[Rfam]
RNA: Bacterial large subunit ribosomal RNA, nucleotides 26 to 625
Organism: Kumtagia ephedrae
RNA sequence: UGGAUGCCUUGGCAUGCACAGGCGAUGAAGGACGUGAUACGCUGCGAUAAGCGUCGGGGAGGUGCGAAUACCCUUUGAUCCGACGAUUUCCGAAUGGGGAAACCCACCUAAGGUACUUGGAAAAUCAAAGGCGCCCUGGCGGGCGUGAGUGGUGAAUAGUGAAUAGUGAAUGGUUUCCAUUCACCAUUCACCGGUUACCAUUCACGGCGCCGAAGGCGUCUUCGGUUUCCAAGUAUCGAUAAUAGGUAUCUUCACCUGAAUACAUAGGGUGAAAGAAGCGAACGCGGGGAACUGAAACAUCUAAGUACCCGUAGGAAAGGACAUCAACAGAGACUCCGGAAGUAGUGGCGAGCGAACCCGGACCAGGCCAGCGGCUUUUGCGAGACAAGCGGAACACUCUGGAAAGUGUGGCAUGAAUGGGUGACAGCCCCGUACGCGUAAUGCGAGCAAAAGUCCUUGAGUAAGGCGGGACACGUGAAAUCCUGUCUGAACAUGGGGAGACCACUCUCCAAGCCUAAGUACUCGUGCAUGACCGAUAGCGAACUAGUACCGUGAGGGAAAGGUGAAAAGCACCCCGACAAGGGGAGUGAAAGAGUACCU
Numbered sequence: 001u002g003g004a005u006g007c008c009u010u011g012g013c014a015u016g017c018a019c020a021g022g023c024g025a026u027g028a029a030g031g032a033c034g035u036g037a038u039a040c041g042c043u044g045c046g047a048u049a050a051g052c053g054u055c056g057g058g059g060a061g062g063u064g065c066g067a068a069u070a071c072c073c074u075u076u077g078a079u080c081c082g083a084c085g086a087u088u089u090c091c092g093a094a095u096g097g098g099g100a101a102a103c104c105c106a107c108c109u110a111a112g113g114u115a116c117u118u119g120g121a122a123a124a125u126c127a128a129a130g131g132c133g134c135c136c137u138g139g140c141g142g143g144c145g146u147g148a149g150u151g152g153u154g155a156a157u158a159g160u161g162a163a164u165a166g167u168g169a170a171u172g173g174u175u176u177c178c179a180u181u182c183a184c185c186a187u188u189c190a191c192c193g194g195u196u197a198c199c200a201u202u203c204a205c206g207g208c209g210c211c212g213a214a215g216g217c218g219u220c221u222u223c224g225g226u227u228u229c230c231a232a233g234u235a236u237c238g239a240u241a242a243u244a245g246g247u248a249u250c251u252u253c254a255c256c257u258g259a260a261u262a263c264a265u266a267g268g269g270u271g272a273a274a275g276a277a278g279c280g281a282a283c284g285c286g287g288g289g290a291a292c293u294g295a296a297a298c299a300u301c302u303a304a305g306u307a308c309c310c311g312u313a314g315g316a317a318a319g320g321a322c323a324u325c326a327a328c329a330g331a332g333a334c335u336c337c338g339g340a341a342g343u344a345g346u347g348g349c350g351a352g353c354g355a356a357c358c359c360g361g362a363c364c365a366g367g368c369c370a371g372c373g374g375c376u377u378u379u380g381c382g383a384g385a386c387a388a389g390c391g392g393a394a395c396a397c398u399c400u401g402g403a404a405a406g407u408g409u410g411g412c413a414u415g416a417a418u419g420g421g422u423g424a425c426a427g428c429c430c431c432g433u434a435c436g437c438g439u440a441a442u443g444c445g446a447g448c449a450a451a452a453g454u455c456c457u458u459g460a461g462u463a464a465g466g467c468g469g470g471a472c473a474c475g476u477g478a479a480a481u482c483c484u485g486u487c488u489g490a491a492c493a494u495g496g497g498g499a500g501a502c503c504a505c506u507c508u509c510c511a512a513g514c515c516u517a518a519g520u521a522c523u524c525g526u527g528c529a530u531g532a533c534c535g536a537u538a539g540c541g542a543a544c545u546a547g548u549a550c551c552g553u554g555a556g557g558g559a560a561a562g563g564u565g566a567a568a569a570g571c572a573c574c575c576c577g578a579c580a581a582g583g584g585g586a587g588u589g590a591a592a593g594a595g596u597a598c599c600u
Stems, first nucleotide, its partner, number of pairs: 006599001007563002011534002013531007020523002022279002030091003033046003052085007061073002096105003106247005249276002251273007283314001284312005294301002324331002334519001335362005345353002365516004373457002376452005389437003395410003399406001419431003464488008495510005550557002573585004